[Rfam]
Nucleotides: 061
Base pairs, nucleotide, nucleotide: 002013003012004011027053028052029051030050031049032048033047035046036045037044
Number, partner (000 for none) and nucleotide at each position: 001000u002013g003012g004011u005000a006000g007000a008000u009000g010000c011004a012003c013002c014000c015000u016000a017000a018000u019000a020000a021000c022000u023000c024000a025000c026000u027053u028052c029051c030050c031049u032048a033047g034000u035046u036045g037044g038000c039000u040000u041000a042000c043000a044037c045036c046035a047033c048032u049031g050030g051029g052028g053027a054000a055000u056000u057000u058000u059000u060000g061000u
Shown here is a 61-nucleotide RNA sequence from Tolypothrix sp. NIES-4075, a member of the family "Nitrogen stress-induced RNA 1". Pairs were carried over by alignment from the consensus structure. The family has 17 seed sequences and 962 matches in Rfam 15.1.